RNA sequence: AUUCGAGAAACAUUUUAGUCAGGGUCUCUCAUGAGUCCCGACGUACAAUUUUUGGAAGCCUCCUUUUUGGAGGUC
Numbered sequence: 001a002u003u004c005g006a007g008a009a010a011c012a013u014u015u016u017a018g019u020c021a022g023g024g025u026c027u028c029u030c031a032u033g034a035g036u037c038c039c040g041a042c043g044u045a046c047a048a049u050u051u052u053u054g055g056a057a058g059c060c061u062c063c064u065u066u067u068u069g070g071a072g073g074u075c
Stems, first nucleotide, its partner, number of pairs: 022039003026035003058074006
About this RNA: A member of the RNA family "SmY spliceosomal RNA" from Panagrellus redivivus, 75 nucleotides long. Lineage of the source: Eukaryota > Opisthokonta > Protostomia > Panagrolaimidae > Panagrellus. The family's consensus secondary structure is taken from published work. The literature on the family includes a 2006 paper in Genome Res by Deng et al., "Organization of the Caenorhabditis elegans small non-coding transcriptome: genomic features, biogenesis, and expression". A search with the family's covariance model found it, with a score of 46 bits. Rfam classes the family as a spliceosomal small nuclear RNA.